The family of this 116-nucleotide RNA from Brachypodium distachyon is "MIR5070 microRNA precursor family". Its Rfam clan is "MIR2863 microRNA precursor clan". The family's consensus secondary structure was predicted with RNAalifold.
[Rfam]
RNA sequence: CAGGGUACCCUCAGACUCUCCUUAGUUCAACCAAAUGAACUAAAAUUUUAAAAUAACAUGACUUUUUGAAAAACUAGUUCAUUUGUUUGAACUAAGAAGGGUCACAGGGUACCCUA
Number, nucleotide and partner (000 for none) at each position: 001c000002a115003g114004g113005g112006u111007a110008c109009c108010c107011u106012c000013a000014g103015a102016c101017u100018c099019u098020c000021c096022u095023u094024a093025g092026u091027u090028c089029a088030a087031c000032c085033a084034a083035a082036u081037g080038a079039a078040c077041u076042a075043a000044a000045a000046u000047u000048u000049u000050a000051a000052a000053a000054u000055a000056a000057c000058a000059u000060g000061a000062c000063u000064u000065u000066u000067u000068g000069a000070a000071a000072a000073a000074c000075u042076a041077g040078u039079u038080c037081a036082u035083u034084u033085g032086u000087u030088u029089g028090a027091a026092c025093u024094a023095a022096g021097a000098a019099g018100g017101g016102u015103c014104a000105c000106a011107g010108g009109g008110u007111a006112c005113c004114c003115u002116a000